[Rfam]
RNA sequence: CCGGGAUCGCGGCUCAUUUGGCCGGUGUGGUACAGAGAAGCCGGCUUGUUUACGUGCCCGUCCCGG
Dot-bracket structure: ((((((....(((..((..(((((((((...))......))))))).))......)))..))))))
The family of this 66-nucleotide RNA from Apteryx owenii is "MAT2A 3'UTR stem loop F". For this family Rfam cites "New families of human regulatory RNA structures identified by comparative analysis of vertebrate genomes" (Parker et al., Genome Res, 2011). Rfam classes the family as a cis-regulatory element.